This 99-nucleotide RNA sequence from Microbacterium sp. C448 belongs to the Rfam family "mraW RNA".
RNA sequence: UGACGCCCCCUGGUCCUGACUCCCAGCCGCCACGCCCUGACACACUUCCCCGGUGCCAGGUCGGAGCGGAUGGGGAUCAGGACCCGGGGUCCGGCCCCC
Number, nucleotide and partner (000 for none) at each position: 001u000002g000003a000004c000005g000006c000007c000008c000009c000010c086011u000012g084013g083014u082015c081016c080017u000018g078019a077020c000021u075022c074023c073024c072025a071026g000027c069028c068029g067030c066031c000032a000033c063034g062035c000036c060037c059038u058039g057040a000041c055042a054043c053044a000045c000046u000047u000048c000049c000050c000051c000052g000053g043054u042055g041056c000057c039058a038059g037060g036061u000062c034063g033064g000065a000066g030067c029068g028069g027070a000071u025072g024073g023074g022075g021076a000077u019078c018079a000080g016081g015082a014083c013084c012085c000086g010087g000088g000089g000090u000091c000092c000093g000094g000095c000096c000097c000098c000099c000
Lineage of the source: Bacteria > Bacillati > Actinomycetota > Micrococcales > Microbacterium.